[Rfam]
RNA sequence: UGUUUUGAAUGCUCUGGAAGAUAUGGGAUUUUGUUGUUGUAAAUACAGUACUCAAACAACAAGUCACAGCCUUCCAUAAUAUUCAAAAUG
Dot-bracket structure: .(((((((.((.(.(((.((.(..(.(((((.((((((................))))))))))).).).)).))).).)).))))))).

The record is a 90-nucleotide RNA from Larimichthys crocea, which matches "mir-7 microRNA precursor family" in Rfam. NCBI's taxonomy places the organism under Eukaryota, Opisthokonta, Teleostomi, Osteoglossocephalai, Larimichthys. A reference for the family is Lagos-Quintana et al. (2001), "Identification of novel genes coding for small expressed RNAs", Science. Rfam describes the family as follows. This family represents the microRNA (miRNA) precursor mir-7. Rfam 15.1 lists 2,589 matches to the family in 797 species. The base pairs follow the family's consensus structure, which was predicted with PFOLD.